[Rfam]
Clostridiales-1 RNA: a 160-nucleotide RNA from Ruminococcus sp. AF31-8BH. The family has 194 seed sequences and 1,172 matches in Rfam 15.1. The organism belongs to Ruminococcus, within Bacteria. The family's consensus secondary structure is taken from published work.
RNA sequence: AGAAAGUCCCGGAUAGCAGCUGUGAAUGAGCCAUGCUUGCAUGAGCGAGUUCACAGAUAUUAGACGGGCAAGAAGGUAUGAGUAAGAAGGGCGAUAGCCCGGAUUACGAAUACCUUCGACAGCUGUGGGAGCGCUGUAAGCGCGGAACAGCUGACUUUCG
Numbered sequence: 001a002g003a004a005a006g007u008c009c010c011g012g013a014u015a016g017c018a019g020c021u022g023u024g025a026a027u028g029a030g031c032c033a034u035g036c037u038u039g040c041a042u043g044a045g046c047g048a049g050u051u052c053a054c055a056g057a058u059a060u061u062a063g064a065c066g067g068g069c070a071a072g073a074a075g076g077u078a079u080g081a082g083u084a085a086g087a088a089g090g091g092c093g094a095u096a097g098c099c100c101g102g103a104u105u106a107c108g109a110a111u112a113c114c115u116u117c118g119a120c121a122g123c124u125g126u127g128g129g130a131g132c133g134c135u136g137u138a139a140g141c142g143c144g145g146a147a148c149a150g151c152u153g154a155c156u157u158u159c160g
Stems, first nucleotide, its partner, number of pairs: 002159006008068004015061002018058001020056008030046001032043004072117008082107004089100004120153007131143004